Notes: Rfam assigns this 78-nucleotide RNA from Astyanax mexicanus to the family "mir-19 microRNA precursor family". For this family Rfam cites "Identification of novel genes coding for small expressed RNAs" (Lagos-Quintana et al., Science, 2001). A search with the family's covariance model found it, with a score of 56 bits. Clan: mir-19 clan. The family has 106 seed sequences and 2,337 matches in Rfam 15.1.

[Rfam]
RNA sequence: GUUCUCGGUUAGUUUUGCUAGUUUGCAGCAGCUGGUCUGAAUUUCGCUGUGCAAAUGCAUGCAAAACUGAGGGAGGCG
Numbered sequence: 001g002u003u004c005u006c007g008g009u010u011a012g013u014u015u016u017g018c019u020a021g022u023u024u025g026c027a028g029c030a031g032c033u034g035g036u037c038u039g040a041a042u043u044u045c046g047c048u049g050u051g052c053a054a055a056u057g058c059a060u061g062c063a064a065a066a067c068u069g070a071g072g073g074a075g076g077c078g
Stems, first nucleotide, its partner, number of pairs: 003076004009070010021058001022055006030048003